[Rfam]
RNA sequence: AAUAGCUUCAAUUCCGUAGUGCAUUGCAGUGUGCUUUAGACGAACUGCAAGCAAUGUGGAAGUGAAGCGAUUCU
Numbered sequence: 001a002a003u004a005g006c007u008u009c010a011a012u013u014c015c016g017u018a019g020u021g022c023a024u025u026g027c028a029g030u031g032u033g034c035u036u037u038a039g040a041c042g043a044a045c046u047g048c049a050a051g052c053a054a055u056g057u058g059g060a061a062g063u064g065a066a067g068c069g070a071u072u073c074u
Base pairs, nucleotide, nucleotide: 006067007066008065009064010063013060014059015058016057017056020053021052022051024050025049026048027047028046
RNA: mir-932 microRNA precursor family